[Rfam]
RNA sequence: AGCUCCCAAGUUGAGGCUAUAGCAGAAAUGCUCACACUGUGGCCCUGUCAGAUUCCAACAAAUCUGUGAAUUCUACU
Numbered sequence: 001a002g003c004u005c006c007c008a009a010g011u012u013g014a015g016g017c018u019a020u021a022g023c024a025g026a027a028a029u030g031c032u033c034a035c036a037c038u039g040u041g042g043c044c045c046u047g048u049c050a051g052a053u054u055c056c057a058a059c060a061a062a063u064c065u066g067u068g069a070a071u072u073c074u075a076c077u
Stems, first nucleotide, its partner, number of pairs: 013045001015044004021077002024074004028040003049066006

The family of this 77-nucleotide sequence from Alligator sinensis is "Mammalian CPEB3 ribozyme".